[Rfam]
RNA sequence: GCCGCUAUCAUUUUUGUGAUUUGCAGCUUGAUCAUUCCAAAUACAGUUGCAUAGUCACAAAAGUGAUUAUCGGA
Numbered sequence: 001g002c003c004g005c006u007a008u009c010a011u012u013u014u015u016g017u018g019a020u021u022u023g024c025a026g027c028u029u030g031a032u033c034a035u036u037c038c039a040a041a042u043a044c045a046g047u048u049g050c051a052u053a054g055u056c057a058c059a060a061a062a063g064u065g066a067u068u069a070u071c072g073g074a
Stems, first nucleotide, its partner, number of pairs: 002073003006069002008066013022051007